[Rfam]
RNA: Ribosomal protein L20 leader
RNA sequence: UGAGAAAAGCAGAAGUGAGAACUUCUCGCCUUGCGACUAACGUUGUCUGGCUCUACAUGCUAAGUUUCCUUUGGAAAUUAUUGACUGUAGGACGGGCUUGUGUUAGCAAGUUCGUUUUUGAUUUUCUCA
Number, nucleotide and partner (000 for none) at each position: 001u000002g000003a000004g000005a000006a000007a000008a000009g000010c000011a026012g025013a024014a023015g022016u021017g000018a000019g000020a000021a016022c015023u014024u013025c012026u011027c000028g051029c050030c049031u000032u000033g046034c045035g044036a043037c042038u000039a000040a000041c000042g037043u036044u035045g034046u033047c000048u000049g030050g029051c028052u000053c000054u000055a000056c000057a000058u000059g000060c000061u000062a000063a000064g000065u000066u000067u000068c000069c000070u000071u000072u000073g000074g000075a000076a000077a000078u000079u000080a000081u000082u000083g000084a000085c000086u000087g000088u000089a000090g000091g116092a115093c114094g113095g112096g111097c110098u109099u108100g107101u000102g000103u000104u000105a000106g000107c100108a099109a098110g097111u096112u095113c094114g093115u092116u091117u000118u000119u000120g000121a000122u000123u000124u000125u000126c000127u000128c000129a000